[Rfam]
RNA sequence: UUCGAUCUCGCAACGACACAAACGCGUGUCGCCCUCUGCAUGCCUUCGCCGAUUCUCUUACUAGAAUAACCAACGCGAUUCUGUCGUUAGCCGCGGCGAGGC
Numbered sequence: 001u002u003c004g005a006u007c008u009c010g011c012a013a014c015g016a017c018a019c020a021a022a023c024g025c026g027u028g029u030c031g032c033c034c035u036c037u038g039c040a041u042g043c044c045u046u047c048g049c050c051g052a053u054u055c056u057c058u059u060a061c062u063a064g065a066a067u068a069a070c071c072a073a074c075g076c077g078a079u080u081c082u083g084u085c086g087u088u089a090g091c092c093g094c095g096g097c098g099a100g101g102c
Stems, first nucleotide, its partner, number of pairs: 010032002013029003042102004047098005075087005

Notes
Rfam assigns this 102-nucleotide sequence from Pseudomonas sp. HPB0071 to the family "Pseudomon-Rho RNA". The match comes from Rfam's covariance-model search (55 bits).